[Rfam]
RNA sequence: CCCGGCGCUUGCUCAGUAGUCAGUGUAGAUCCUGUGGGGCUGACAGCAGCUACAUCUGGCUACUGGGUCUCCGCCGACGGCC
Numbered sequence: 001c002c003c004g005g006c007g008c009u010u011g012c013u014c015a016g017u018a019g020u021c022a023g024u025g026u027a028g029a030u031c032c033u034g035u036g037g038g039g040c041u042g043a044c045a046g047c048a049g050c051u052a053c054a055u056c057u058g059g060c061u062a063c064u065g066g067g068u069c070u071c072c073g074c075c076g077a078c079g080g081c082c
Base pairs, nucleotide, nucleotide: 013066014065015064016063017062018061020059021058022057023055024054025053026052027051028050032049033048034047035046
Shown here is an 82-nucleotide RNA sequence from Oryzias latipes, a member of the family "mir-221 microRNA precursor family". Rfam 15.1 lists 1,797 matches to the family in 643 species. Pairs were carried over by alignment from the consensus structure, which was predicted with RNAalifold. Gene Ontology terms of the family: miRNA-mediated post-transcriptional gene silencing and RISC complex.